[Rfam]
RNA sequence: UACUGUUCUACGCCGCUACAUCUAGUUGCAUUGUGACGUCUGUUUCAGGGAAAUGCAGCAUGAUGUAGUGGUGUAGCUCAGUA
Numbered sequence: 001u002a003c004u005g006u007u008c009u010a011c012g013c014c015g016c017u018a019c020a021u022c023u024a025g026u027u028g029c030a031u032u033g034u035g036a037c038g039u040c041u042g043u044u045u046c047a048g049g050g051a052a053a054u055g056c057a058g059c060a061u062g063a064u065g066u067a068g069u070g071g072u073g074u075a076g077c078u079c080a081g082u083a
Stems, first nucleotide, its partner, number of pairs: 001083005008076015025059008
RNA: mir-2013 microRNA precursor family